[Rfam]
RNA sequence: UGCCCGUGAUGAGUGAAAUGAAUAAGAGUAGUGGACAGAAGUGAUUUCUGAAAACUUGAAUCUGAGGCA
Number, nucleotide and partner (000 for none) at each position: 001u069002g068003c067004c066005c000006g000007u000008g000009a000010u000011g000012a000013g000014u000015g000016a000017a000018a000019u000020g000021a000022a000023u000024a000025a000026g000027a000028g000029u000030a000031g000032u000033g000034g000035a000036c000037a000038g000039a000040a000041g000042u000043g000044a000045u000046u000047u000048c000049u000050g000051a000052a000053a000054a000055c000056u000057u000058g000059a000060a000061u000062c000063u000064g000065a000066g004067g003068c002069a001

About this RNA
The record is a 69-nucleotide sequence from Pangasianodon hypophthalmus, which matches "Small nucleolar RNA SNORD75" in Rfam. Pairs were carried over by alignment from the consensus structure, which was predicted with RNAalifold. For this family Rfam cites "Purified box C/D snoRNPs are able to reproduce site-specific 2'-O-methylation of target RNA in vitro" (Galardi et al., Mol Cell Biol, 2002). It scores 68 bits against the family's covariance model.